[Rfam]
RNA sequence: UGUCCGUAUAUGGGUAUGGAGACUGAAAAACUCAAAAAUUGUGUGUUGUCAUCAACUUCAUAUCUUGCAUAUAUCGAUACUGGAGCCAAAUAACAGCACUACAUUU
Numbered sequence: 001u002g003u004c005c006g007u008a009u010a011u012g013g014g015u016a017u018g019g020a021g022a023c024u025g026a027a028a029a030a031c032u033c034a035a036a037a038a039u040u041g042u043g044u045g046u047u048g049u050c051a052u053c054a055a056c057u058u059c060a061u062a063u064c065u066u067g068c069a070u071a072u073a074u075c076g077a078u079a080c081u082g083g084a085g086c087c088a089a090a091u092a093a094c095a096g097c098a099c100u101a102c103a104u105u106u
Stems, first nucleotide, its partner, number of pairs: 043099006056085004061079004
A member of the RNA family "Small nucleolar RNA snoR97" from Macleaya cordata, 106 nucleotides long. On this family, see Marker et al., Curr Biol 2002: "Experimental RNomics: identification of 140 candidates for small non-messenger RNAs in the plant Arabidopsis thaliana". Its family is annotated with RNA processing and nucleolus in the Gene Ontology. NCBI's taxonomy places the organism under Eukaryota, Tracheophyta, Mesangiospermae, Ranunculales, Macleaya. The family has 7 seed sequences and 862 matches in Rfam 15.1. The match comes from Rfam's covariance-model search (82 bits).